A member of the RNA family "MIR807 microRNA precursor family" from Oryza rufipogon, 176 nucleotides long. Rfam 15.1 lists 1,514 matches to the family in 13 species.
RNA sequence: AACCACACUAUUGAUGAAUAGAUUCACCCGUGAGAUGACGUGGUUGUUCCAUUUAAGAUGAGGAUGUUACAUCCUAUUAAUUUCGUACGAUGGCUGGUAAUAGGAUGUCAUGUCCUCGUUCUAAGUGAAACAACCACGUCAUCUCGCGAGUGAAUCCAUUCAUUGAUAGUAUGGUU
Numbered sequence: 001a002a003c004c005a006c007a008c009u010a011u012u013g014a015u016g017a018a019u020a021g022a023u024u025c026a027c028c029c030g031u032g033a034g035a036u037g038a039c040g041u042g043g044u045u046g047u048u049c050c051a052u053u054u055a056a057g058a059u060g061a062g063g064a065u066g067u068u069a070c071a072u073c074c075u076a077u078u079a080a081u082u083u084c085g086u087a088c089g090a091u092g093g094c095u096g097g098u099a100a101u102a103g104g105a106u107g108u109c110a111u112g113u114c115c116u117c118g119u120u121c122u123a124a125g126u127g128a129a130a131c132a133a134c135c136a137c138g139u140c141a142u143c144u145c146g147c148g149a150g151u152g153a154a155u156c157c158a159u160u161c162a163u164u165g166a167u168a169g170u171a172u173g174g175u176u
Base pairs, nucleotide, nucleotide: 001176002175003174004173005172007170009168010167011166012165013164014163015162017160018159019158021156022155023154024153025152026151027150030147031146032145033144035142036141037140038139039138041136042135043134044133045132046131047130048129051126052125054123055122057120058119063114064113065112069108070107071106072105073104074103075102076101077100078099079098086097

About this RNA:
Rfam links the family to the GO terms RISC complex and miRNA-mediated post-transcriptional gene silencing. For this family Rfam cites "Rice embryogenic calli express a unique set of microRNAs, suggesting regulatory roles of microRNAs in plant post-embryogenic development" (Luo et al., FEBS Lett, 2006). Pairs were carried over by alignment from the consensus structure, which was predicted with WAR.